Annotation
mir-8834 microRNA precursor family: a 105-nucleotide RNA from Vulpes vulpes. Gene Ontology terms of the family: RISC complex and miRNA-mediated post-transcriptional gene silencing. The family has 2 seed sequences and 13,926 matches in Rfam 15.1. A search with the family's covariance model found it, with a score of 61 bits.
RNA sequence: AGGAGGAACAGCAGCAGUGGCGGGGCCAGCUCUGGAGCCCUGGAUUCAGCUCCCGCAAUAACUAGGGAACUCUCUGUCUGCAGGGCCUGGGGGCUCCGGGGCGGG
Numbered sequence: 001a002g003g004a005g006g007a008a009c010a011g012c013a014g015c016a017g018u019g020g021c022g023g024g025g026c027c028a029g030c031u032c033u034g035g036a037g038c039c040c041u042g043g044a045u046u047c048a049g050c051u052c053c054c055g056c057a058a059u060a061a062c063u064a065g066g067g068a069a070c071u072c073u074c075u076g077u078c079u080g081c082a083g084g085g086c087c088u089g090g091g092g093g094c095u096c097c098g099g100g101g102c103g104g105g
Stems, first nucleotide, its partner, number of pairs: 002097004009089003012085001019078007028071002031068003036063001041057002